[Rfam]
Rfam assigns this 142-nucleotide sequence from Arabis alpina to the family "small nucleolar RNA snoR137". Rfam links the family to the GO terms RNA processing and nucleolus. NCBI's taxonomy places the organism under Eukaryota, Streptophytina, Tracheophyta, Spermatophyta, Arabis. It scores 148 bits against the family's covariance model. A reference for the family is Chen and Wu (2009), "Mining small RNA sequencing data: a new approach to identify small nucleolar RNAs in Arabidopsis", Nucleic Acids Res. It is annotated as an H/ACA-box small nucleolar RNA. The family has 4 seed sequences and 808 matches in Rfam 15.1.
RNA sequence: AUUGCUUCAUAAUGGUGAGCUCUCUUAGAUUAAAAAAGUGAGAGAUGUUCAAGUUUCCGGAGCAAAUAGAAAACUGGCCAGAAUUUAACAGCUCUGUGUUUAUAUCUAAUUUUCACAGUGUUACCUGUCUUCUGGUUUAUAC
Numbered sequence: 001a002u003u004g005c006u007u008c009a010u011a012a013u014g015g016u017g018a019g020c021u022c023u024c025u026u027a028g029a030u031u032a033a034a035a036a037a038g039u040g041a042g043a044g045a046u047g048u049u050c051a052a053g054u055u056u057c058c059g060g061a062g063c064a065a066a067u068a069g070a071a072a073a074c075u076g077g078c079c080a081g082a083a084u085u086u087a088a089c090a091g092c093u094c095u096g097u098g099u100u101u102a103u104a105u106c107u108a109a110u111u112u113u114c115a116c117a118g119u120g121u122u123a124c125c126u127g128u129c130u131u132c133u134g135g136u137u138u139a140u141a142c
Stems, first nucleotide, its partner, number of pairs: 003064006016051005021045005077136007090122003094118005
Dot-bracket structure: ..((((((.......((((((((((...............))))).))))).......))))))............(((((((......(((.(((((...............))))).))).......)))))))......